[Rfam]
RNA: Archaeal large subunit ribosomal RNA, nucleotides 2670 to 2920
Organism: Thermoplasmatales archaeon SCGC AB-539-C06
RNA sequence: UGAUGCCUGAAGGGAAAGACCCUUUAGUACGAGAGGAACAGGGGUCUGCAGCCACUAGUUUACCAGUUGUCCGACAGGGCAAUGCUGGGCAGCCACGCUGUAAGGGAUAAAUGCUGAAAGCAUCUAAGCAUGAAGCUCACCCUGAGACGAGGCAUCAUAGAACUCGAAUAGAAGAUUCGUUUGAUAGGGCUAGGGUGUAAGCAUGAAGCUUCGGCGACAUGUUCAGCCCGUAGCUACUAAUCGUUCAUUUA
Numbered sequence: 001u002g003a004u005g006c007c008u009g010a011a012g013g014g015a016a017a018g019a020c021c022c023u024u025u026a027g028u029a030c031g032a033g034a035g036g037a038a039c040a041g042g043g044g045u046c047u048g049c050a051g052c053c054a055c056u057a058g059u060u061u062a063c064c065a066g067u068u069g070u071c072c073g074a075c076a077g078g079g080c081a082a083u084g085c086u087g088g089g090c091a092g093c094c095a096c097g098c099u100g101u102a103a104g105g106g107a108u109a110a111a112u113g114c115u116g117a118a119a120g121c122a123u124c125u126a127a128g129c130a131u132g133a134a135g136c137u138c139a140c141c142c143u144g145a146g147a148c149g150a151g152g153c154a155u156c157a158u159a160g161a162a163c164u165c166g167a168a169u170a171g172a173a174g175a176u177u178c179g180u181u182u183g184a185u186a187g188g189g190c191u192a193g194g195g196u197g198u199a200a201g202c203a204u205g206a207a208g209c210u211u212c213g214g215c216g217a218c219a220u221g222u223u224c225a226g227c228c229c230g231u232a233g234c235u236a237c238u239a240a241u242c243g244u245u246c247a248u249u250u251a
Stems, first nucleotide, its partner, number of pairs: 001157008011143004017047008048101005056095001058093001063088005068081005104138003111131005160246004165179004185239003188235005193229003201222005208215001